Description:
Plastid-clpP 5UTR RNA: a 67-nucleotide RNA sequence from Musa balbisiana. Pairs were carried over by alignment from the consensus structure, which was predicted with LocARNA. The family has 343 seed sequences and 2,105 matches in Rfam 15.1. Plastid clpP is a non-coding RNA (ncRNA) recognised in plastids. It was found in the prime untranslated region (5UTR) of a protease complex subunit (clpP) in plastids, suggesting a posible cis-regulatory function. The family's RNA type in Rfam is cis-regulatory element. A search with the family's covariance model found it, with a score of 73 bits. Lineage of the source: Eukaryota > Viridiplantae > Spermatophyta > Petrosaviidae > Musa.
RNA sequence: AUUCCUGUUCGUAAGAACAAGAGAAGCAGAUCUAUUCUUACCCGAUAAGUACCAAUACGCAAUGGAU
Numbered sequence: 001a002u003u004c005c006u007g008u009u010c011g012u013a014a015g016a017a018c019a020a021g022a023g024a025a026g027c028a029g030a031u032c033u034a035u036u037c038u039u040a041c042c043c044g045a046u047a048a049g050u051a052c053c054a055a056u057a058c059g060c061a062a063u064g065g066a067u
Stems, first nucleotide, its partner, number of pairs: 004021001006019005042065002049058003